[Rfam]
RNA sequence: UUUGCCUAUCAAAACAGGCCCGUGGGGGUGUGGGGAAAAAUAGUCGGAUCCUUAUGUGCCAUCGCGGGAGUGUUGACAAUCGCAUUACCUGUGCCUGUUAUAGUUUCCAAU
Numbered sequence: 001u002u003u004g005c006c007u008a009u010c011a012a013a014a015c016a017g018g019c020c021c022g023u024g025g026g027g028g029u030g031u032g033g034g035g036a037a038a039a040a041u042a043g044u045c046g047g048a049u050c051c052u053u054a055u056g057u058g059c060c061a062u063c064g065c066g067g068g069a070g071u072g073u074u075g076a077c078a079a080u081c082g083c084a085u086u087a088c089c090u091g092u093g094c095c096u097g098u099u100a101u102a103g104u105u106u107c108c109a110a111u
Stems, first nucleotide, its partner, number of pairs: 002110001004108001008104002011101001013099004018094002021091001034074002037071001046060002
Source information:
This 111-nucleotide RNA from Folsomia candida belongs to the Rfam family "Potassium channel RNA editing signal". It scores 65 bits against the family's covariance model. For this family Rfam cites "Control of human potassium channel inactivation by editing of a small mRNA hairpin" (Bhalla et al., Nat Struct Mol Biol, 2004). The organism belongs to Folsomia, within Eukaryota.